[Rfam]
Nucleotides: 178
Base pairs, nucleotide, nucleotide: 006173008171009170010169011168016083017082018081019080020079021078022077023076032068033067034066035065036064037063038062039061087116088115089114090113091112092111093110094109095108096107117143118142120140121139122138123137124136125135126134127133145163146162147161148160149159150158151157
Number, partner (000 for none) and nucleotide at each position: 001000u002000a003000u004000c005000a006173a007000a008171g009170a010169a011168g012000a013000g014000g015000c016083g017082c018081g019080a020079a021078u022077u023076g024000a025000a026000a027000g028000a029000g030000u031000a032068g033067c034066u035065u036064c037063c038062a039061g040000g041000a042000g043000a044000a045000c046000g047000a048000u049000c050000a051000g052000g053000u054000u055000c056000u057000g058000u059000g060000a061039c062038u063037g064036g065035a066034g067033g068032u069000a070000a071000a072000a073000g074000g075000g076023u077022a078021a079020u080019u081018u082017g083016c084000c085000g086000a087116a088115g089114c090113u091112c092111c093110a094109c095108g096107u097000g098000a099000c100000u101000g102000a103000u104000a105000a106000a107096a108095c109094g110093u111092g112091g113090g114089g115088c116087u117143g118142g119000g120140a121139u122138c123137a124136g125135u126134u127133u128000u129000a130000a131000u132000a133127a134126a135125a136124c137123u138122g139121g140120u141000a142118c143117u144000g145163u146162c147161g148160c149159a150158g151157c152000g153000a154000u155000g156000u157151g158150c159149u160148g161147c162146g163145g164000a165000g166000a167000g168011c169010u170009u171008c172000c173006u174000a175000c176000g177000u178000u